Notes: A member of the RNA family "MIR7486 microRNA precursor family" from Gossypium raimondii, 87 nucleotides long.

RNA sequence: CACGUCAGAGCGCUUUGCUGACGUGGAAACAAAUCGCUUCCACAAAAGCACGAUUUGUGUCCACAUCAGCAAAGUGCGCUGACGUGG
Numbered sequence: 001c002a003c004g005u006c007a008g009a010g011c012g013c014u015u016u017g018c019u020g021a022c023g024u025g026g027a028a029a030c031a032a033a034u035c036g037c038u039u040c041c042a043c044a045a046a047a048g049c050a051c052g053a054u055u056u057g058u059g060u061c062c063a064c065a066u067c068a069g070c071a072a073a074g075u076g077c078g079c080u081g082a083c084g085u086g087g
Stems, first nucleotide, its partner, number of pairs: 001086008010077012023064005029058008
Its family is annotated with RISC complex and miRNA-mediated post-transcriptional gene silencing in the Gene Ontology. Rfam 15.1 lists 10,132 matches to the family in 36 species.